[Rfam]
RNA: Alphaproteobacteria transfer-messenger RNA
Organism: Aureimonas fodinaquatilis
Nucleotides: 358
Base pairs, nucleotide, nucleotide: 040056041055042054043053044052060196061195062194063193064192072187073186074185075184076183085175086174089172090171091170095111096110097109098108099107112157113156114155115154116153117152118151197212198211199210202223203222204221207219208218324339325338326337327336330355331354332353333352334351335350
Number, partner (000 for none) and nucleotide at each position: 001000a002000c003000g004000c005000u006000u007000u008000u009000c010000a011000g012000a013000u014000g015000c016000c017000u018000u019000u020000c021000c022000u023000g024000u025000g026000c027000u028000u029000a030000u031000a032000u033000a034000g035000c036000u037000c038000c039000u040056g041055u042054c043053g044052g045000a046000c047000u048000u049000g050000a051000u052044c053043c054042g055041g056040c057000u058000a059000u060196g061195g062194c063193g064192a065000u066000a067000a068000a069000c070000u071000g072187c073186c074185g075184g076183u077000g078000c079000a080000a081000u082000a083000a084000a085175c086174c087000a088000u089172u090171c091170g092000g093000a094000c095111c096110c097109g098108g099107g100000g101000g102000c103000g104000g105000u106000a107099c108098c109097c110096g111095g112157c113156g114155c115154c116153u117152c118151c119000a120000c121000c122000u123000g124000a125000g126000u127000c128000c129000c130000u131000u132000g133000c134000a135000g136000u137000c138000a139000a140000g141000g142000g143000g144000u145000u146000g147000a148000g149000g150000c151118g152117g153116g154115g155114g156113c157112g158000a159000a160000a161000u162000a163000g164000g165000a166000u167000c168000g169000a170091c171090g172089a173000g174086g175085g176000u177000g178000u179000a180000a181000a182000g183076a184075u185074c186073g187072g188000a189000c190000u191000u192064u193063c194062g195061c196060u197212c198211g199210g200000c201000a202223u203222g204221g205000u206000a207219c208218c209000a210199c211198c212197g213000u214000c215000a216000u217000c218208g219207g220000g221204c222203u223202g224000u225000u226000a227000a228000a229000g230000u231000a232000g233000u234000u235000g236000c237000a238000a239000a240000c241000g242000a243000c244000a245000a246000c247000u248000a249000u250000g251000c252000g253000g254000a255000a256000g257000c258000a259000c260000g261000u262000c263000u264000c265000g266000c267000c268000g269000c270000u271000u272000a273000a274000c275000g276000c277000g278000g279000u280000g281000c282000g283000a284000u285000a286000g287000c288000u289000u290000c291000a292000a293000a294000u295000u296000a297000a298000g299000c300000c301000c302000u303000g304000c305000g306000g307000g308000u309000u310000c311000g312000c313000a314000c315000u316000u317000g318000c319000a320000g321000g322000c323000g324339g325338g326337g327336u328000u329000c330355g331354a332353a333352g334351g335350c336327a337326c338325c339324u340000g341000g342000c343000a344000a345000c346000a347000g348000a349000a350335g351334c352333c353332u354331u355330c356000a357000c358000c